[Rfam]
RNA sequence: CGGAUUGCUCCGCGUAGUUGCCAGACCCCCGACCCGGCAACUGCGCGGAGUUCUCUU
Numbered sequence: 001c002g003g004a005u006u007g008c009u010c011c012g013c014g015u016a017g018u019u020g021c022c023a024g025a026c027c028c029c030c031g032a033c034c035c036g037g038c039a040a041c042u043g044c045g046c047g048g049a050g051u052u053c054u055c056u057u
Stems, first nucleotide, its partner, number of pairs: 002056003007051016
Dot-bracket structure: .(((..((((((((((((((((.............))))))))))))))))..))).